[Rfam]
RNA: Actinobacteria sRNA Ms_IGR-5
RNA sequence: ACACCGAAAGGAGGUGAUCCGAGGAAUGAUUUCCCAUCGGACAUGUGAGGUGGCUCGCCGCUGAGGCGACCAUCGGCCCGAACCGUCGGAUCGCUCCGGCGGCUCAUCGGAUCGACGGACCGCAGCGAAUCCACUCGAGCUGCCCGGACCCGCAGGGGUCGGACUCGUCCCCCGACCGGCGCCCAGCGCGACCUGCGGGUCUGCCCAUG
Numbered sequence: 001a002c003a004c005c006g007a008a009a010g011g012a013g014g015u016g017a018u019c020c021g022a023g024g025a026a027u028g029a030u031u032u033c034c035c036a037u038c039g040g041a042c043a044u045g046u047g048a049g050g051u052g053g054c055u056c057g058c059c060g061c062u063g064a065g066g067c068g069a070c071c072a073u074c075g076g077c078c079c080g081a082a083c084c085g086u087c088g089g090a091u092c093g094c095u096c097c098g099g100c101g102g103c104u105c106a107u108c109g110g111a112u113c114g115a116c117g118g119a120c121c122g123c124a125g126c127g128a129a130u131c132c133a134c135u136c137g138a139g140c141u142g143c144c145c146g147g148a149c150c151c152g153c154a155g156g157g158g159u160c161g162g163a164c165u166c167g168u169c170c171c172c173c174g175a176c177c178g179g180c181g182c183c184c185a186g187c188g189c190g191a192c193c194u195g196c197g198g199g200u201c202u203g204c205c206c207a208u209g
Stems, first nucleotide, its partner, number of pairs: 013058001016055001018053001059127005065121001068120001070118002073115003145203012159179004164174001